[Rfam]
RNA sequence: GGAAAAUUGAGAGGGCCUGUCCCUAGUACGAGAGGACCGGGAUGGACACACCUCUGGUGUACCAGUUGUGAUGCCAAUUGCAAUGCUGGGUAGCUACGUGUGGAAUAGAUAACCGCUGAAAGCAUCUAAGCGGGAAGCUAGCCUCGAAAUAAGUUUUCCCUAUGAGGAUCGUGGGAGACCACCACGUUGAUAGGCUGGGUGUGGAAGAAGUGUAAGCUUUGGAGCUAACCAGUACUAAUCAUCCCAUUG
Numbered sequence: 001g002g003a004a005a006a007u008u009g010a011g012a013g014g015g016c017c018u019g020u021c022c023c024u025a026g027u028a029c030g031a032g033a034g035g036a037c038c039g040g041g042a043u044g045g046a047c048a049c050a051c052c053u054c055u056g057g058u059g060u061a062c063c064a065g066u067u068g069u070g071a072u073g074c075c076a077a078u079u080g081c082a083a084u085g086c087u088g089g090g091u092a093g094c095u096a097c098g099u100g101u102g103g104a105a106u107a108g109a110u111a112a113c114c115g116c117u118g119a120a121a122g123c124a125u126c127u128a129a130g131c132g133g134g135a136a137g138c139u140a141g142c143c144u145c146g147a148a149a150u151a152a153g154u155u156u157u158c159c160c161u162a163u164g165a166g167g168a169u170c171g172u173g174g175g176a177g178a179c180c181a182c183c184a185c186g187u188u189g190a191u192a193g194g195c196u197g198g199g200u201g202u203g204g205a206a207g208a209a210g211u212g213u214a215a216g217c218u219u220u221g222g223a224g225c226u227a228a229c230c231a232g233u234a235c236u237a238a239u240c241a242u243c244c245c246a247u248u249g
Base pairs, nucleotide, nucleotide: 001159002158003157004156005155006154007153008152011145012144013143014142017045018044019043020042021041022040023039047102048101049100050099051098055096056095057094062089063088064087065086066085067082068081069080070079071078072077106140107139108138113133114132115131116130117129163246166244167243168242169241170186171185172184173183174182191237192236193235194233195232196231197230198229201225207220208219209218210217211216

Source information:
This 249-nucleotide part of an RNA from bacterium NHP-B belongs to the Rfam family "Bacterial large subunit ribosomal RNA". The family's consensus secondary structure is taken from published work. The match comes from Rfam's covariance-model search (2742 bits). Gene Ontology terms of the family: ribosome and structural constituent of ribosome.